[Rfam]
RNA sequence: UGAUGUAAGUGUCAAAAGUAUAGAUUGCGUUUGUGCUCGCACAAAUAAGCAAUUUAUACUUAUUGACACGCCGAACACCUCAAACUUCCAUAAAAUGGUGUGAACACGCCAUUUUAUGGAAGUUUGAGGUGUUCGAGGAUUGUGGGAAUUGCAUAGCAAUGGAGCAAUCCGAUUACAUCA
Numbered sequence: 001u002g003a004u005g006u007a008a009g010u011g012u013c014a015a016a017a018g019u020a021u022a023g024a025u026u027g028c029g030u031u032u033g034u035g036c037u038c039g040c041a042c043a044a045a046u047a048a049g050c051a052a053u054u055u056a057u058a059c060u061u062a063u064u065g066a067c068a069c070g071c072c073g074a075a076c077a078c079c080u081c082a083a084a085c086u087u088c089c090a091u092a093a094a095a096u097g098g099u100g101u102g103a104a105c106a107c108g109c110c111a112u113u114u115u116a117u118g119g120a121a122g123u124u125u126g127a128g129g130u131g132u133u134c135g136a137g138g139a140u141u142g143u144g145g146g147a148a149u150u151g152c153a154u155a156g157c158a159a160u161g162g163a164g165c166a167a168u169c170c171g172a173u174u175a176c177a178u179c180a
Base pairs, nucleotide, nucleotide: 001180002179003178004177005176006175007174010068011067012066013065016061017060018059019058020057021056022055023054024053025052026051027050028049030047031044032043033042034041035040072135073134074133075132076131077130078129079128082125083124084123085122090117091116092115093114094113095112096111097110098109099108100107101106137170138169139168140167141166142165143164148160149159150158151157

The family of this 180-nucleotide sequence from Mediterraneibacter torques is "Clostridiales-1 RNA".
A search with the family's covariance model found it, with a score of 115 bits.